[Rfam]
The family of this 198-nucleotide RNA sequence from Triticum urartu is "Early nodulin 40". For this family Rfam cites "Identification of conserved secondary structures and expansion segments in enod40 RNAs reveals new enod40 homologues in plants" (Gultyaev and Roussis, Nucleic Acids Res, 2007). By type it is a non-coding RNA gene. A search with the family's covariance model found it, with a score of 93 bits.
RNA sequence: AUGGAAGGCGCAUGGCUCGAGCAUCUACAUGGCUCUUGAGAGCGGAAGUAGGGUCGGGAUGAAGCGCAAAGCUGAGCUCUCCUGCGCAGGAAGCGCUUCAGCUUUGCGGUGCCUCUCCUGACCUCCCAGGUGGUCGCCUGAGGUACGCAAGAAUCGGCAAGUCACAAAACGGCAAUGGUGAACUCCGGCAGGAGUCCA
Numbered sequence: 001a002u003g004g005a006a007g008g009c010g011c012a013u014g015g016c017u018c019g020a021g022c023a024u025c026u027a028c029a030u031g032g033c034u035c036u037u038g039a040g041a042g043c044g045g046a047a048g049u050a051g052g053g054u055c056g057g058g059a060u061g062a063a064g065c066g067c068a069a070a071g072c073u074g075a076g077c078u079c080u081c082c083u084g085c086g087c088a089g090g091a092a093g094c095g096c097u098u099c100a101g102c103u104u105u106g107c108g109g110u111g112c113c114u115c116u117c118c119u120g121a122c123c124u125c126c127c128a129g130g131u132g133g134u135c136g137c138c139u140g141a142g143g144u145a146c147g148c149a150a151g152a153a154u155c156g157g158c159a160a161g162u163c164a165c166a167a168a169a170c171g172g173c174a175a176u177g178g179u180g181a182a183c184u185c186c187g188g189c190a191g192g193a194g195u196c197c198a
Base pairs, nucleotide, nucleotide: 056080057079058078093154096151097150098149112147114145182195183194184193185192